[Rfam]
RNA: Group II catalytic intron D1-D4-6
RNA sequence: GGAAUCCAGUCUGGUAAGACCUAGCAAGUCGCCAGUACCGAGUCCUUGGAGCAUCAAAGGCUAACAAUGAUGUUUAAGCGUAGGACAGGGAACAGGAACGCCGUAAUGCGUAAGCGUGAAGUGAUUGAGCUUCGUUAGAAAUAUCAAUUGUGUGGGGUGGUCUGCUACCUCCUUGGGUCACCAACAAGGAUUAGUCGUUAAAGCGAGACUAUGAAAACACACCGGAGUCCUAGAGCA
Numbered sequence: 001g002g003a004a005u006c007c008a009g010u011c012u013g014g015u016a017a018g019a020c021c022u023a024g025c026a027a028g029u030c031g032c033c034a035g036u037a038c039c040g041a042g043u044c045c046u047u048g049g050a051g052c053a054u055c056a057a058a059g060g061c062u063a064a065c066a067a068u069g070a071u072g073u074u075u076a077a078g079c080g081u082a083g084g085a086c087a088g089g090g091a092a093c094a095g096g097a098a099c100g101c102c103g104u105a106a107u108g109c110g111u112a113a114g115c116g117u118g119a120a121g122u123g124a125u126u127g128a129g130c131u132u133c134g135u136u137a138g139a140a141a142u143a144u145c146a147a148u149u150g151u152g153u154g155g156g157g158u159g160g161u162c163u164g165c166u167a168c169c170u171c172c173u174u175g176g177g178u179c180a181c182c183a184a185c186a187a188g189g190a191u192u193a194g195u196c197g198u199u200a201a202a203g204c205g206a207g208a209c210u211a212u213g214a215a216a217a218c219a220c221a222c223c224g225g226a227g228u229c230c231u232a233g234a235g236c237a
Base pairs, nucleotide, nucleotide: 011035012034013033014032018030019029020028022206024204025203038089039088042086044084045083046082047080048079049075050074051073052072053071054070055069056068059065127229129228130227131226132225133224134223150222151221152220153219154218156182157181158180161176162175164173192211193210194209195208196207